Overview: Bacterial large subunit ribosomal RNA: a 336-nucleotide part of an RNA from Candidatus Tokpelaia sp. JSC161. The family's consensus secondary structure is taken from published work.
[Rfam]
RNA sequence: UGAGAGAACUGCGUUGAAGGAACUCGGCAAAUUGCACGCGUAACUUCGGAAAAAGCGUGACCUUUAUUCGGGCAACCGGAUCAAGGUGGCACAGACCAGGGGGUAGCGACUGUUUACCAAAAACACAGGGCUCUGCGAAGUCGCAAGACGACGUAUAGGGUCUGACGCCUGCCCGGUGCCGGAAGGUUAAGAGGAGAGGUGUAAGCUUUGAAUUGAAGCCCCGGUAAACGGCGGCCGUAACUAUAACGGUCCUAAGGUAGCGAAAUUCCUUGUCGGGUAAGUUCCGACCUGCACGAAUGGCGUAACGACUUCCCCGCUGUCUCCAACGCAGACUCA
Numbered sequence: 001u002g003a004g005a006g007a008a009c010u011g012c013g014u015u016g017a018a019g020g021a022a023c024u025c026g027g028c029a030a031a032u033u034g035c036a037c038g039c040g041u042a043a044c045u046u047c048g049g050a051a052a053a054a055g056c057g058u059g060a061c062c063u064u065u066a067u068u069c070g071g072g073c074a075a076c077c078g079g080a081u082c083a084a085g086g087u088g089g090c091a092c093a094g095a096c097c098a099g100g101g102g103g104u105a106g107c108g109a110c111u112g113u114u115u116a117c118c119a120a121a122a123a124c125a126c127a128g129g130g131c132u133c134u135g136c137g138a139a140g141u142c143g144c145a146a147g148a149c150g151a152c153g154u155a156u157a158g159g160g161u162c163u164g165a166c167g168c169c170u171g172c173c174c175g176g177u178g179c180c181g182g183a184a185g186g187u188u189a190a191g192a193g194g195a196g197a198g199g200u201g202u203a204a205g206c207u208u209u210g211a212a213u214u215g216a217a218g219c220c221c222c223g224g225u226a227a228a229c230g231g232c233g234g235c236c237g238u239a240a241c242u243a244u245a246a247c248g249g250u251c252c253u254a255a256g257g258u259a260g261c262g263a264a265a266u267u268c269c270u271u272g273u274c275g276g277g278u279a280a281g282u283u284c285c286g287a288c289c290u291g292c293a294c295g296a297a298u299g300g301c302g303u304a305a306c307g308a309c310u311u312c313c314c315c316g317c318u319g320u321c322u323c324c325a326a327c328g329c330a331g332a333c334u335c336a
Stems, first nucleotide, its partner, number of pairs: 001336004009331008018322003035059005044049001060087005066081006088092001100315004105310002107307002111125003128163008136153001140149003166302004171232003176229002178225005185220003191214002196209005233251006252256001262289001272288006